[Rfam]
RNA sequence: CACGACGGGCCGCCGCCACAGCUCAGCCGGAGUUGUGUGCGAGGGGCCCUUGGGGUGAAGCCGCGGUACGCGGCCGGGCGACUUCGCCAGUCCGAACCCGACAGGUCAUCCUUCGCAGGCGGUUGACGAAGGGUUG
Numbered sequence: 001c002a003c004g005a006c007g008g009g010c011c012g013c014c015g016c017c018a019c020a021g022c023u024c025a026g027c028c029g030g031a032g033u034u035g036u037g038u039g040c041g042a043g044g045g046g047c048c049c050u051u052g053g054g055g056u057g058a059a060g061c062c063g064c065g066g067u068a069c070g071c072g073g074c075c076g077g078g079c080g081a082c083u084u085c086g087c088c089a090g091u092c093c094g095a096a097c098c099c100g101a102c103a104g105g106u107c108a109u110c111c112u113u114c115g116c117a118g119g120c121g122g123u124u125g126a127c128g129a130a131g132g133g134u135u136g
Base pairs, nucleotide, nucleotide: 011121012120013119014118018038019037020036039116040115041114042113043112044111053099054098055097061073062072063071064070076093077092078091079090
About this RNA:
This 136-nucleotide sequence from Streptomyces sp. SID5785 belongs to the Rfam family "c-di-AMP riboswitch aptamer (ydaO/yuaA leader)". This family represents a conserved RNA structure found upstream of the ydaO and yuaA genes in Bacillus subtilis and related genes in other bacteria. Rfam links the family to the GO terms cyclic-di-AMP binding and regulation of gene expression. It scores 46 bits against the family's covariance model. Lineage of the source: Bacteria > Actinomycetota > Actinomycetes > Streptomycetaceae > Streptomyces. The pairing is the family consensus, mapped onto this sequence.